[Rfam]
RNA sequence: CGCAAUUUAAAGCAAUUUAUUUUGUGAUUAUCCAGCAGUCAGCAGAUGGCAUAGUAGCCAAACGCCCAUCGUAAUGGAUGGGACACGGUGAAGGCC
Numbered sequence: 001c002g003c004a005a006u007u008u009a010a011a012g013c014a015a016u017u018u019a020u021u022u023u024g025u026g027a028u029u030a031u032c033c034a035g036c037a038g039u040c041a042g043c044a045g046a047u048g049g050c051a052u053a054g055u056a057g058c059c060a061a062a063c064g065c066c067c068a069u070c071g072u073a074a075u076g077g078a079u080g081g082g083a084c085a086c087g088g089u090g091a092a093g094g095c096c
Stems, first nucleotide, its partner, number of pairs: 001026002004023002008019004038047003048096003057089003066081003